[Rfam]
RNA sequence: GGGUUCAUUCCAUUCUUUUAUACAGAGAAAUCACGGUCGAGAUCAAAACUCAGAAGUCUGUCAGAUUCUCUCUCUCCGUCGUCUCAACCGUGUUUUUCUGUAUAAAGAGAUGUACUGGAUCC
Numbered sequence: 001g002g003g004u005u006c007a008u009u010c011c012a013u014u015c016u017u018u019u020a021u022a023c024a025g026a027g028a029a030a031u032c033a034c035g036g037u038c039g040a041g042a043u044c045a046a047a048a049c050u051c052a053g054a055a056g057u058c059u060g061u062c063a064g065a066u067u068c069u070c071u072c073u074c075u076c077c078g079u080c081g082u083c084u085c086a087a088c089c090g091u092g093u094u095u096u097u098c099u100g101u102a103u104a105a106a107g108a109g110a111u112g113u114a115c116u117g118g119a120u121c122c
Stems, first nucleotide, its partner, number of pairs: 001122007011112003016107015032092006039085003
Dot-bracket structure: (((((((...(((..(((((((((((((((.((((((.(((.........................................))).)))))))))))))))))))))..)))...)))))))

Source information:
The family of this 122-nucleotide RNA from Malus domestica is "MIR1509 microRNA precursor family". Lineage of the source: Eukaryota > Streptophytina > Pentapetalae > rosids > Malus. The sequence is in the family's curated seed alignment. Gene Ontology terms of the family: miRNA-mediated post-transcriptional gene silencing and RISC complex. Rfam 15.1 lists 42 matches to the family in 23 species.